[Rfam]
RNA: c-di-AMP riboswitch aptamer (ydaO/yuaA leader)
Organism: Pseudosporangium ferrugineum
RNA sequence: ACGGAACCGCCGCCUAAUCGCCUGACGGCGAGCCGGGGACCCAUCCGGUAAUGGGGUGAAUCCGCAGUUCGCUGCGGUAGGGAUCACUUCCGUCCCGAACCCGUCAGCUAACCCGGUCGGCGGCCGACGGAAGGAACG
Numbered sequence: 001a002c003g004g005a006a007c008c009g010c011c012g013c014c015u016a017a018u019c020g021c022c023u024g025a026c027g028g029c030g031a032g033c034c035g036g037g038g039a040c041c042c043a044u045c046c047g048g049u050a051a052u053g054g055g056g057u058g059a060a061u062c063c064g065c066a067g068u069u070c071g072c073u074g075c076g077g078u079a080g081g082g083a084u085c086a087c088u089u090c091c092g093u094c095c096c097g098a099a100c101c102c103g104u105c106a107g108c109u110a111a112c113c114c115g116g117u118c119g120g121c122g123g124c125c126g127a128c129g130g131a132a133g134g135a136a137c138g
Stems, first nucleotide, its partner, number of pairs: 011122004018031003032117006042053002054102003062077004080096004